[Rfam]
RNA: Bacterial large signal recognition particle RNA
RNA sequence: CUGUGCUAGACGGGGAGGUAGCGGUGCCCUGUAACUCGCAAUCCGCUGUAGCGGGGUUGAAUUCCUGUUAGCGGUACUGUGAUGUGAGGUCUGGCUCUUACACGUGGUGUUGAGAGUUGGGUCCUUCGCAAUGAAUGCUCAUGAACCCGGUCAGGUCUGGAAGGAAGCAGCCGUAAGUGAGAUGUUUCAUGUGCCGAGGGGCUGCCUGACUUGAGCUAACGAUAAGAGUUCGCUUGUAUCACUUUAUCAAUAACAGGUGCACGG
Numbered sequence: 001c002u003g004u005g006c007u008a009g010a011c012g013g014g015g016a017g018g019u020a021g022c023g024g025u026g027c028c029c030u031g032u033a034a035c036u037c038g039c040a041a042u043c044c045g046c047u048g049u050a051g052c053g054g055g056g057u058u059g060a061a062u063u064c065c066u067g068u069u070a071g072c073g074g075u076a077c078u079g080u081g082a083u084g085u086g087a088g089g090u091c092u093g094g095c096u097c098u099u100a101c102a103c104g105u106g107g108u109g110u111u112g113a114g115a116g117u118u119g120g121g122u123c124c125u126u127c128g129c130a131a132u133g134a135a136u137g138c139u140c141a142u143g144a145a146c147c148c149g150g151u152c153a154g155g156u157c158u159g160g161a162a163g164g165a166a167g168c169a170g171c172c173g174u175a176a177g178u179g180a181g182a183u184g185u186u187u188c189a190u191g192u193g194c195c196g197a198g199g200g201g202c203u204g205c206c207u208g209a210c211u212u213g214a215g216c217u218a219a220c221g222a223u224a225a226g227a228g229u230u231c232g233c234u235u236g237u238a239u240c241a242c243u244u245u246a247u248c249a250a251u252a253a254c255a256g257g258u259g260c261a262c263g264g
Base pairs, nucleotide, nucleotide: 001264002263003262004261005260006259009058010057011056012030013029014028015027017025019023035055036054037053038052039051064257065256066255067254068253069252070251073248074247075246076245079242080241081240082239083238084237085236086235087234088233093229096227097226098225099224100223104220105219106217107216108215114212115211116210117209118208119207120206121205122204123200124199125198126197127196128195129191130190132189133188134187135186138181139180140179141178142177148173149172150171151170156165157164158163